[Rfam]
RNA sequence: GACCGGACUAGGCCGGGCAGUUAGGCCACUGCUCUCCCGCCCAAACGGUCUUCAAGGGGGCCGACCACCGAGGGCGUCCGAGCCGACCGGUUCGGGCCCCGCGAGCGGACGUCGAAGCCUCGUCCCACGAGGGCAGCGGUCCGUGCUCUGCCAUCUGCAGGGAUGGUACGACGCGGUUGACCGCGGGAAAUCCACCAGGCGCGGAAGCGAGCAGUGGUACCGUGGACACCUGUCGCCCGUGGGGUCGCGGGGUGGAGGAAGCGAGCGGGAUUCCCCGUGCCGGAACGCUCGGGCAAUCUCGACGUCCACCA
Numbered sequence: 001g002a003c004c005g006g007a008c009u010a011g012g013c014c015g016g017g018c019a020g021u022u023a024g025g026c027c028a029c030u031g032c033u034c035u036c037c038c039g040c041c042c043a044a045a046c047g048g049u050c051u052u053c054a055a056g057g058g059g060g061c062c063g064a065c066c067a068c069c070g071a072g073g074g075c076g077u078c079c080g081a082g083c084c085g086a087c088c089g090g091u092u093c094g095g096g097c098c099c100c101g102c103g104a105g106c107g108g109a110c111g112u113c114g115a116a117g118c119c120u121c122g123u124c125c126c127a128c129g130a131g132g133g134c135a136g137c138g139g140u141c142c143g144u145g146c147u148c149u150g151c152c153a154u155c156u157g158c159a160g161g162g163a164u165g166g167u168a169c170g171a172c173g174c175g176g177u178u179g180a181c182c183g184c185g186g187g188a189a190a191u192c193c194a195c196c197a198g199g200c201g202c203g204g205a206a207g208c209g210a211g212c213a214g215u216g217g218u219a220c221c222g223u224g225g226a227c228a229c230c231u232g233u234c235g236c237c238c239g240u241g242g243g244g245u246c247g248c249g250g251g252g253u254g255g256a257g258g259a260a261g262c263g264a265g266c267g268g269g270a271u272u273c274c275c276c277g278u279g280c281c282g283g284a285a286c287g288c289u290c291g292g293g294c295a296a297u298c299u300c301g302a303c304g305u306c307c308a309c310c311a
Stems, first nucleotide, its partner, number of pairs: 005307004011062004015034007040057001069301005076294008087283005093277004098269005105262002110257001112255001117253007124243006131236001132234005138227001139178001141176005147170001149168008181225006192217004200209003